[Rfam]
Nucleotides: 082
Stems, first nucleotide, its partner, number of pairs: 009074013023060001025058002028055003033050004
Number, partner (000 for none) and nucleotide at each position: 001000a002000g003000g004000c005000c006000g007000g008000g009074g010073a011072g012071a013070g014069a015068g016067a017066g018065g019064u020063a021062g022000g023060g024000u025058c026057u027000g028055a029054u030053c031000c032000g033050c034049a035048g036047c037000c038000u039000c040000c041000a042000u043000g044000g045000c046000a047036g048035c049034u050033g051000u052000u053030g054029a055028u056000g057026a058025g059000c060023c061000a062021u063020u064019g065018c066017c067016u068015c069014u070013c071012u072011c073010u074009u075000u076000c077000u078000c079000u080000u081000c082000a
Shown here is an 82-nucleotide sequence from Cnephaeus nilssonii, a member of the family "mir-574 microRNA precursor family". The family has 6 seed sequences and 4,084 matches in Rfam 15.1. A search with the family's covariance model found it, with a score of 90 bits. On this family, see Nielsen et al., Anim Genet 2010: "MicroRNA identity and abundance in porcine skeletal muscles determined by deep sequencing". The base pairs follow the family's consensus structure, which was predicted with RNAalifold.